A member of the RNA family "Guanidine-I riboswitch aptamer" from Paenibacillus radicis, 119 nucleotides long. This family represents a conserved RNA structure found upstream of the ykkC and yxkD genes in Bacillus subtilis and related genes in other bacteria.

[Rfam]
RNA sequence: GAAAAUGCUGUCUAGGGUUCCGUUGAGGCUUUGCUUAUGCAGAGAAUCAAGGCUGGUCCAAGAGACGGCGUACAGUCUGAUCGGGCUGUAUAACACGGAAGGAUAAAAGCCUGGGAGAU
Number, nucleotide and partner (000 for none) at each position: 001g000002a000003a000004a000005a000006u000007g069008c068009u067010g066011u065012c064013u000014a000015g059016g058017g000018u000019u000020c056021c055022g053023u050024u049025g048026a047027g000028g000029c000030u000031u000032u000033g000034c000035u000036u000037a000038u000039g000040c000041a000042g000043a000044g000045a000046a000047u026048c025049a024050a023051g000052g000053c022054u000055g021056g020057u000058c016059c015060a000061a000062g000063a000064g012065a011066c010067g009068g008069c007070g091071u090072a089073c088074a087075g086076u085077c084078u000079g000080a000081u000082c000083g000084g077085g076086c075087u074088g073089u072090a071091u070092a000093a000094c114095a000096c117097g000098g000099a000100a112101g111102g110103a000104u000105a000106a000107a000108a000109g000110c102111c101112u100113g000114g094115g000116a000117g096118a000119u000
Description: The source organism's lineage runs through Bacteria, Bacillati, Bacillota, Caryophanales and Paenibacillus. The pairing is the family consensus, mapped onto this sequence.